The family of this 80-nucleotide sequence is "chrB-a RNA". It is annotated as a cis-regulatory element.

RNA sequence: CCCAUGGGGAUCGCGAUCUCCCCACGAGGCGACAUGCCGGAGCAUCGCGUCCCCGCUCAUCUCUGCAAGGACGCCCCAUG
Numbered sequence: 001c002c003c004a005u006g007g008g009g010a011u012c013g014c015g016a017u018c019u020c021c022c023c024a025c026g027a028g029g030c031g032a033c034a035u036g037c038c039g040g041a042g043c044a045u046c047g048c049g050u051c052c053c054c055g056c057u058c059a060u061c062u063c064u065g066c067a068a069g070g071a072c073g074c075c076c077c078a079u080g
Stems, first nucleotide, its partner, number of pairs: 005024006047074006